[Rfam]
RNA sequence: GUCAAGAACCCUCCCCCUGAAGGGAGAGGGCUUGUCUGAGCCAGGACGGACAACGUAAGUCUUGACUAGCCUUAGUCCGUCUCCUAUUUUUAGGGGAUAGUCAAGGACUACGCCGCGGGAAGAAAAAUACCUUGGAAUGCUUCCCUAGUCCCAAGCUCUAUAAGUCUCCAGUCUUGGUCUGGAGGGCUUCCGCAAGGAAGCGACACGAUUCCCGUAGGCAUUGGCGAGGGGACGUUUGA
Numbered sequence: 001g002u003c004a005a006g007a008a009c010c011c012u013c014c015c016c017c018u019g020a021a022g023g024g025a026g027a028g029g030g031c032u033u034g035u036c037u038g039a040g041c042c043a044g045g046a047c048g049g050a051c052a053a054c055g056u057a058a059g060u061c062u063u064g065a066c067u068a069g070c071c072u073u074a075g076u077c078c079g080u081c082u083c084c085u086a087u088u089u090u091u092a093g094g095g096g097a098u099a100g101u102c103a104a105g106g107a108c109u110a111c112g113c114c115g116c117g118g119g120a121a122g123a124a125a126a127a128u129a130c131c132u133u134g135g136a137a138u139g140c141u142u143c144c145c146u147a148g149u150c151c152c153a154a155g156c157u158c159u160a161u162a163a164g165u166c167u168c169c170a171g172u173c174u175u176g177g178u179c180u181g182g183a184g185g186g187c188u189u190c191c192g193c194a195a196g197g198a199a200g201c202g203a204c205a206c207g208a209u210u211c212c213c214g215u216a217g218g219c220a221u222u223g224g225c226g227a228g229g230g231g232a233c234g235u236u237u238g239a
Stems, first nucleotide, its partner, number of pairs: 001066007010030002012027002016023002031045004069225003074109005112219003116214006127161002131155005137149002139235002142232005164201002167198003
A member of the RNA family "HNH endonuclease-associated RNA and ORF (HEARO) RNA", 239 nucleotides long. On this family, see Weinberg et al., Nature 2009: "Exceptional structured noncoding RNAs revealed by bacterial metagenome analysis". By type it is a non-coding RNA gene.